RNA sequence: GCGCGACUCCGCGGUCUACGGCGGCGCGCAAUCAUCUGCUAGUCCGCCCGUCACGGCACGGGGCGGAAGACGAGAGGA
Numbered sequence: 001g002c003g004c005g006a007c008u009c010c011g012c013g014g015u016c017u018a019c020g021g022c023g024g025c026g027c028g029c030a031a032u033c034a035u036c037u038g039c040u041a042g043u044c045c046g047c048c049c050g051u052c053a054c055g056g057c058a059c060g061g062g063g064c065g066g067a068a069g070a071c072g073a074g075a076g077g078a
Stems, first nucleotide, its partner, number of pairs: 001029005007023001009021003035070003043067007
A member of the RNA family "aspS RNA" from Olsenella sp. KH1P3, 78 nucleotides long. The match comes from Rfam's covariance-model search (62 bits). Taxonomically the source falls in Olsenella (Bacteria, Actinomycetota, Coriobacteriales, Atopobiaceae). The base pairs follow the family's consensus structure, which is taken from published work.